[Rfam]
RNA sequence: AAGAAUAUCUUGAUUGUCGUCAGUAUAAUUGUUGGAGAAUGGCCAACGAGUUCCUACCUAUGUUCCUAAACAUAGACUACUGAUGACUGUGAAAUAGAU
Numbered sequence: 001a002a003g004a005a006u007a008u009c010u011u012g013a014u015u016g017u018c019g020u021c022a023g024u025a026u027a028a029u030u031g032u033u034g035g036a037g038a039a040u041g042g043c044c045a046a047c048g049a050g051u052u053c054c055u056a057c058c059u060a061u062g063u064u065c066c067u068a069a070a071c072a073u074a075g076a077c078u079a080c081u082g083a084u085g086a087c088u089g090u091g092a093a094a095u096a097g098a099u
Stems, first nucleotide, its partner, number of pairs: 018085008029049007058075007
RNA: Purine riboswitch aptamer
Organism: Weissella soli